[Rfam]
This 449-nucleotide RNA from Pachycephala philippinensis belongs to the Rfam family "Vertebrate telomerase RNA". Taxonomically the source falls in Pachycephala (Eukaryota, Bilateria, Gnathostomata, Neoaves). Pairs were carried over by alignment from the consensus structure, which is taken from published work. Rfam describes the family as follows. Telomerase is a ribonucleoprotein reverse transcriptase that synthesises telomeric DNA. Telomerase RNAs differ greatly in sequence and structure between vertebrates, ciliates and yeasts, but they share a 5' pseudoknot structure close to the template sequence. A reference for the family is Chen et al. (2000), "Secondary structure of vertebrate telomerase RNA", Cell. It scores 156 bits against the family's covariance model.
RNA sequence: CGUGCCGGGGUGGGCAGGUCCUGUGGUAAACUAACCCUAAUGGCGGCUGCGCCCCUCACACCCGCCCGCUGUUUUACUCGCUGACUUUCAGCGGGCAGGGGAGCGGCCUAAGGGAAGGGGAAAUGGGGGGAAAAGAGAUCCGGCCUCAAAAAAAGCCAGCGAGGGGGAUCCACACCCCGGCCCACCCUGGGGUCCCUGUCCCUGCUCCCCAACCGGAGUGCUCCCGCCGUCGCCCUUCGUGGAGGCCGCGGUCGGCAGGCUCAGCGCCAGUACCGCCGCGAAGAGUUCGUCUCUGUCAGCCUUGGCGGCGGCCGGGACCAGAGGGCCGGCCCGCCCACCUUGGGCAGCCGGGGGACCCCAGCAGAACAAAACGGGGACGGCGCCGCGGGCGCUGAGCAGCCGCGGCUCCCUCAGACGUGGGAUGCGCGGCCGGCGCCGCCCCGACACGC
Number, nucleotide and partner (000 for none) at each position: 001c000002g000003u000004g181005c180006c179007g178008g177009g176010g175011u174012g173013g000014g171015c000016a000017g170018g169019u168020c167021c166022u165023g000024u000025g000026g000027u000028a000029a000030a000031c000032u000033a000034a000035c000036c000037c000038u000039a000040a000041u000042g000043g000044c000045g000046g000047c000048u000049g000050c000051g000052c103053c000054c101055c100056u000057c000058a000059c000060a000061c000062c000063c000064g096065c095066c094067c093068g092069c091070u090071g089072u000073u000074u000075u000076a000077c000078u000079c000080g160081c159082u158083g157084a000085c155086u153087u152088u151089c071090a070091g069092c068093g067094g066095g065096c064097a000098g000099g000100g055101g054102a000103g052104c000105g000106g000107c000108c000109u000110a000111a000112g000113g000114g000115a000116a000117g000118g000119g000120g000121a000122a000123a000124u000125g000126g000127g000128g000129g000130g000131a000132a000133a000134a000135g000136a000137g000138a000139u000140c000141c000142g000143g000144c000145c000146u000147c000148a000149a000150a000151a088152a087153a086154a000155g085156c000157c083158a082159g081160c080161g000162a000163g000164g000165g022166g021167g020168a019169u018170c017171c014172a000173c012174a011175c010176c009177c008178c007179g006180g005181c004182c000183c000184a000185c000186c000187c361188u360189g359190g358191g357192g356193u355194c000195c000196c000197u000198g000199u000200c000201c329202c328203u000204g326205c325206u324207c323208c000209c000210c000211a000212a000213c000214c000215g000216g000217a000218g000219u000220g000221c000222u317223c316224c315225c314226g313227c000228c000229g309230u308231c307232g306233c305234c000235c000236u000237u000238c000239g000240u000241g000242g000243a000244g000245g000246c000247c280248g279249c278250g277251g276252u000253c275254g274255g273256c000257a000258g268259g267260c266261u000262c000263a000264g000265c000266g260267c259268c258269a000270g000271u000272a000273c255274c254275g253276c251277c250278g249279c248280g247281a000282a294283g293284a292285g291286u000287u000288c000289g000290u000291c285292u284293c283294u282295g000296u000297c000298a000299g000300c000301c000302u000303u000304g000305g233306c232307g231308g230309c229310g000311g000312c000313c226314g225315g224316g223317a222318c000319c000320a000321g000322a000323g207324g206325g205326c204327c000328g202329g201330c000331c000332c000333g000334c000335c000336c000337a000338c000339c000340u000341u000342g000343g000344g000345c000346a000347g000348c000349c000350g000351g000352g000353g000354g000355a193356c192357c191358c190359c189360a188361g187362c000363a000364g000365a000366a000367c000368a000369a000370a000371a000372c000373g000374g441375g440376g439377a000378c000379g437380g436381c435382g434383c433384c432385g000386c000387g000388g000389g000390c000391g000392c000393u000394g000395a000396g000397c000398a000399g000400c429401c428402g427403c426404g425405g000406c000407u422408c421409c420410c419411u000412c000413a000414g000415a000416c000417g000418u000419g410420g409421g408422a407423u000424g000425c404426g403427c402428g401429g400430c000431c000432g384433g383434c382435g381436c380437c379438g000439c376440c375441c374442c000443g000444a000445c000446a000447c000448g000449c000